RNA sequence: CGAGUCGGCAGGGCGGCCGCGGCGAUUCGAAAGAAAAGCCGAGGAAAGUCCGGACUCCACAGGGCAGGGUGGUUGCUAACGGCAACCCGAGGCGACUCGCGGGACAGUGCCACAGAAAGCAAACCGCCUUGGCCAACGGCCGAGGUAAGGGUGAAACGGUGGUGUAAGAGACCACCAGCACCCCGGGUGACCGGGGUGGCUAGGUAAACCCCACCCGGAGCAAGGCCAAGAGGGCGUUCAGAAAUGGACGCCUGCGCAGGCGAUCGAGGGCGGCCCGCCCGAGCCUGCGGGUAGGCCGCACGAGCCUGCCGGCGACGGCAGGCCCAGAUGGAUGGCCGCCACCCGGGAAUCCCGGGUACAGAAUCCGGCUUACAUGCCGACUCGUCCG
Numbered sequence: 001c002g003a004g005u006c007g008g009c010a011g012g013g014c015g016g017c018c019g020c021g022g023c024g025a026u027u028c029g030a031a032a033g034a035a036a037a038g039c040c041g042a043g044g045a046a047a048g049u050c051c052g053g054a055c056u057c058c059a060c061a062g063g064g065c066a067g068g069g070u071g072g073u074u075g076c077u078a079a080c081g082g083c084a085a086c087c088c089g090a091g092g093c094g095a096c097u098c099g100c101g102g103g104a105c106a107g108u109g110c111c112a113c114a115g116a117a118a119g120c121a122a123a124c125c126g127c128c129u130u131g132g133c134c135a136a137c138g139g140c141c142g143a144g145g146u147a148a149g150g151g152u153g154a155a156a157c158g159g160u161g162g163u164g165u166a167a168g169a170g171a172c173c174a175c176c177a178g179c180a181c182c183c184c185g186g187g188u189g190a191c192c193g194g195g196g197u198g199g200c201u202a203g204g205u206a207a208a209c210c211c212c213a214c215c216c217g218g219a220g221c222a223a224g225g226c227c228a229a230g231a232g233g234g235c236g237u238u239c240a241g242a243a244a245u246g247g248a249c250g251c252c253u254g255c256g257c258a259g260g261c262g263a264u265c266g267a268g269g270g271c272g273g274c275c276c277g278c279c280c281g282a283g284c285c286u287g288c289g290g291g292u293a294g295g296c297c298g299c300a301c302g303a304g305c306c307u308g309c310c311g312g313c314g315a316c317g318g319c320a321g322g323c324c325c326a327g328a329u330g331g332a333u334g335g336c337c338g339c340c341a342c343c344c345g346g347g348a349a350u351c352c353c354g355g356g357u358a359c360a361g362a363a364u365c366c367g368g369c370u371u372a373c374a375u376g377c378c379g380a381c382u383c384g385u386c387c388g
Base pairs, nucleotide, nucleotide: 001384002383003382004381005380006379007378008377009376010375011373012340013339014338015337016336017335018334020041021040022039023038026035027034028033046371047370048369050368051367052366053365054364055220056219057218058217062276063275064274065273067216068215069214070213071212072086073085074084075083076082087101088099089098090097091096102211103210107209108208109205110204111203124150125149126146127145128144129143130142131141132140133139134138158176159175160174161173162172163171178200179198180197181196182195183194184193185192186191224297225296226295227294234288235287236286239283268280269279270278271277304323305322306321307320308319309318310317311316

Shown here is a 388-nucleotide RNA from Kibdelosporangium aridum, a member of the family "Bacterial RNase P class A". Pairs were carried over by alignment from the consensus structure, which is taken from published work. A search with the family's covariance model found it, with a score of 310 bits. The family's RNA type in Rfam is ribozyme. Taxonomically the source falls in Kibdelosporangium (Bacteria, Actinomycetes, Pseudonocardiales, Pseudonocardiaceae).